[Rfam]
RNA sequence: AUGCAUCUAGUAAGAAUUGAACCUACGUGUUUGCCAAAUUAUGAGUUGGGCACUUUCACCAUUCAGCCAUGGAUGC
Dot-bracket structure: ..((((((.(((.(.......).)))..............(((.((((((...........)))))))))))))))
Rfam assigns this 76-nucleotide sequence from Vanilla planifolia to the family "Plastid-ycf2 5UTR RNA". It scores 75 bits against the family's covariance model. For this family Rfam cites "Retrograde signaling in plants: A critical review focusing on the GUN pathway and beyond" (Richter et al., Plant Commun, 2023). Rfam's curators write: Plastid ycf2 is a non-coding RNA (ncRNA) recognised in plastids.